[Rfam]
RNA sequence: CUCAACAAACUUAUGAUGGGGUGCGCGCUUUUUUAUUGUACAAGAUAACGGAUUUGUAGACAUU
Numbered sequence: 001c002u003c004a005a006c007a008a009a010c011u012u013a014u015g016a017u018g019g020g021g022u023g024c025g026c027g028c029u030u031u032u033u034u035a036u037u038g039u040a041c042a043a044g045a046u047a048a049c050g051g052a053u054u055u056g057u058a059g060a061c062a063u064u
Stems, first nucleotide, its partner, number of pairs: 010044003014040001015037007
The record is a 64-nucleotide RNA from Staphylococcus simiae, which matches "Staphylococcus sRNA sau-30" in Rfam.